RNA sequence: GCCCAAAGUCGCACGUGCCUGUGGGUGUCCGCCGGUAUUCUGAAUGGAGAAUAGACCGGUACGGUAACCUGGACCUAACCGCUCCAGUUGAUCUGAUGGCCAACCAUGGAUCAAGGACACCUUGAAGCAACGACGGUGCGGGCCUUU
Dot-bracket structure: ((((...((((....(((....(((((((((((((.(((((......)))))...)))))........(((((.........)))))((((..(.((((....)))).).))))))))))))....))).)))).....))))....
RNA: Alphaproteobacterial sRNA ar45